[Rfam]
RNA sequence: UCCAAUUCAUCGCUUAAUUCCCGAAUAGGGAAACGGGGGAACCGACCGAGGCCGUGCAACCUGCAUAGCUUCACGGGGUGAAUCCCGACGCUUGCUUGCAAGCGCCGGGUAGGGCACUCUCAAGUCCGAAUCCGACAGCUAACCUCGUAAGCAGCUUGAGAGAGAACCG
Numbered sequence: 001u002c003c004a005a006u007u008c009a010u011c012g013c014u015u016a017a018u019u020c021c022c023g024a025a026u027a028g029g030g031a032a033a034c035g036g037g038g039g040a041a042c043c044g045a046c047c048g049a050g051g052c053c054g055u056g057c058a059a060c061c062u063g064c065a066u067a068g069c070u071u072c073a074c075g076g077g078g079u080g081a082a083u084c085c086c087g088a089c090g091c092u093u094g095c096u097u098g099c100a101a102g103c104g105c106c107g108g109g110u111a112g113g114g115c116a117c118u119c120u121c122a123a124g125u126c127c128g129a130a131u132c133c134g135a136c137a138g139c140u141a142a143c144c145u146c147g148u149a150a151g152c153a154g155c156u157u158g159a160g161a162g163a164g165a166a167c168c169g
Base pairs, nucleotide, nucleotide: 012152013151014150018032019031020030021029022028033148034147035146036145037144038143043075044074076133077132078131084109085108086107087106112127113126114125115124

The record is a 169-nucleotide sequence from Paenibacillus hemerocallicola, which matches "c-di-AMP riboswitch aptamer (ydaO/yuaA leader)" in Rfam.